[Rfam]
RNA: Bacterial RNase P class A
Organism: Chelativorans petroleitrophicus
RNA sequence: CCAGCUGGCCGGGCAGCCGCGCGCGCAGGUGUCGAAAGGCAGCGCGUGAGGAAAGUCCGGGCUCCACGGAAAUACGGUGCCGGGUAACGCCCGGCGGGGGAAACCCCAGGGAAAGUGCCACAGAAAGCAGACCGCCCCGCCCGUAUUUCGGCUCGCCGCGGCGGAAACGUCUCGGGCGAAGAGGCGAAAUACGGGCGGGGUAAGGGUGAAAGGGUGGGGUAAGAGCCCACCGCGCUCCUGGCAACAGGGGCGGCACGGUAAACCCCACCGGGAGCAAGACCGAAUAGGAACGGCGCGAAGGGUGACCUUCGAGGGCGAUUUCCGGCCCGCCGUUCGGGUAGGUUGCUAGAGGCCGGUGGCGACAUCGGUCCCAGAGGAAUGGCUGCCUCACCGCGCUUCGGCGCGGUGAACAGAACCCGGCUUACAGGCCGGCUGGUUUC
Numbered sequence: 001c002c003a004g005c006u007g008g009c010c011g012g013g014c015a016g017c018c019g020c021g022c023g024c025g026c027a028g029g030u031g032u033c034g035a036a037a038g039g040c041a042g043c044g045c046g047u048g049a050g051g052a053a054a055g056u057c058c059g060g061g062c063u064c065c066a067c068g069g070a071a072a073u074a075c076g077g078u079g080c081c082g083g084g085u086a087a088c089g090c091c092c093g094g095c096g097g098g099g100g101a102a103a104c105c106c107c108a109g110g111g112a113a114a115g116u117g118c119c120a121c122a123g124a125a126a127g128c129a130g131a132c133c134g135c136c137c138c139g140c141c142c143g144u145a146u147u148u149c150g151g152c153u154c155g156c157c158g159c160g161g162c163g164g165a166a167a168c169g170u171c172u173c174g175g176g177c178g179a180a181g182a183g184g185c186g187a188a189a190u191a192c193g194g195g196c197g198g199g200g201u202a203a204g205g206g207u208g209a210a211a212g213g214g215u216g217g218g219g220u221a222a223g224a225g226c227c228c229a230c231c232g233c234g235c236u237c238c239u240g241g242c243a244a245c246a247g248g249g250g251c252g253g254c255a256c257g258g259u260a261a262a263c264c265c266c267a268c269c270g271g272g273a274g275c276a277a278g279a280c281c282g283a284a285u286a287g288g289a290a291c292g293g294c295g296c297g298a299a300g301g302g303u304g305a306c307c308u309u310c311g312a313g314g315g316c317g318a319u320u321u322c323c324g325g326c327c328c329g330c331c332g333u334u335c336g337g338g339u340a341g342g343u344u345g346c347u348a349g350a351g352g353c354c355g356g357u358g359g360c361g362a363c364a365u366c367g368g369u370c371c372c373a374g375a376g377g378a379a380u381g382g383c384u385g386c387c388u389c390a391c392c393g394c395g396c397u398u399c400g401g402c403g404c405g406g407u408g409a410a411c412a413g414a415a416c417c418c419g420g421c422u423u424a425c426a427g428g429c430c431g432g433c434u435g436g437u438u439u440c
Stems, first nucleotide, its partner, number of pairs: 001436010011425001012387007020048007028040001053423003057420005062274004071321002075270005080094005095109001096107004110265002115263002117259003132205002134201017213231006232254001233252008278344004288335006313328004351370008